Notes
The family of this 54-nucleotide sequence from Rhodobacteraceae bacterium PARR1 is "terC RNA". Rfam 15.1 lists 1,112 matches to the family in 772 species.

RNA sequence: UUCGCGGGCCGGGCCCCUCUGACGAUGCGUUCAUCGCCAUGUCGGACCGCAUCG
Numbered sequence: 001u002u003c004g005c006g007g008g009c010c011g012g013g014c015c016c017c018u019c020u021g022a023c024g025a026u027g028c029g030u031u032c033a034u035c036g037c038c039a040u041g042u043c044g045g046a047c048c049g050c051a052u053c054g
Base pairs, nucleotide, nucleotide: 006048007047009045010044011043012042023036024035025034026033027032
A search with the family's covariance model found it, with a score of 54 bits.